[Rfam]
RNA sequence: CAUUAGCCCUGAUAGGAGCGGUAUCCCCCGCUUUUUUCGGCGGGGAUAUAGCGGAUAGCAGGAAUAAGG
Number, nucleotide and partner (000 for none) at each position: 001c000002a000003u000004u000005a000006g000007c000008c000009c061010u060011g059012a000013u057014a056015g000016g000017a000018g052019c051020g000021g000022u000023a047024u046025c045026c044027c000028c043029c042030g041031c040032u039033u000034u000035u000036u000037u000038c000039g032040g031041c030042g029043g028044g026045g025046a024047u023048a000049u000050a000051g019052c018053g000054g000055a000056u014057a013058g000059c011060a010061g009062g000063a000064a000065u000066a000067a000068g000069g000

Background
This 69-nucleotide RNA sequence from Flavobacterium album belongs to the Rfam family "Flavo-1 RNA". The family's RNA type in Rfam is small RNA. Rfam 15.1 lists 7,497 matches to the family in 411 species.